[Rfam]
RNA sequence: UGUUGCCCAAAGUAUGGGGUCUGGAUACAGGGGCCUUCAUGAGGAAAAAGACUCAGGUGGCCGGCAUUGUAUACAGAAAUUCCUUCGGAUGUCAUGGGAGCCUGCUGUGGUCAAAAUGAAGGUGAGUGAUAGAGUCUGAUUAUGGGACAAGCAUUAAACCAACAUGAGGUCUAUGUGAGACAGUUAAAAGAGGUAUUAAAGGUGUGAGAAGUAAAGGUAAAAACCAAUGGUUUAUUUAAAUUUUUGAUUUUGUUAAGGAUCUUUGCCCUU
Numbered sequence: 001u002g003u004u005g006c007c008c009a010a011a012g013u014a015u016g017g018g019g020u021c022u023g024g025a026u027a028c029a030g031g032g033g034c035c036u037u038c039a040u041g042a043g044g045a046a047a048a049a050g051a052c053u054c055a056g057g058u059g060g061c062c063g064g065c066a067u068u069g070u071a072u073a074c075a076g077a078a079a080u081u082c083c084u085u086c087g088g089a090u091g092u093c094a095u096g097g098g099a100g101c102c103u104g105c106u107g108u109g110g111u112c113a114a115a116a117u118g119a120a121g122g123u124g125a126g127u128g129a130u131a132g133a134g135u136c137u138g139a140u141u142a143u144g145g146g147a148c149a150a151g152c153a154u155u156a157a158a159c160c161a162a163c164a165u166g167a168g169g170u171c172u173a174u175g176u177g178a179g180a181c182a183g184u185u186a187a188a189a190g191a192g193g194u195a196u197u198a199a200a201g202g203u204g205u206g207a208g209a210a211g212u213a214a215a216g217g218u219a220a221a222a223a224c225c226a227a228u229g230g231u232u233u234a235u236u237u238a239a240a241u242u243u244u245u246g247a248u249u250u251u252g253u254u255a256a257g258g259a260u261c262u263u264u265g266c267c268c269u270u
Base pairs, nucleotide, nucleotide: 006033007032008031012028013027014026037051038050040048081124083122084120085119090115093109094108095107096106097105130150132148135146136145137144138143155198156197157196158194159193160192205246206245207244208243210242211241212240215233216232217231218230220228255270256269257268258267260265
RNA: Mason-Pfizer monkey virus packaging signal
Organism: Rattus norvegicus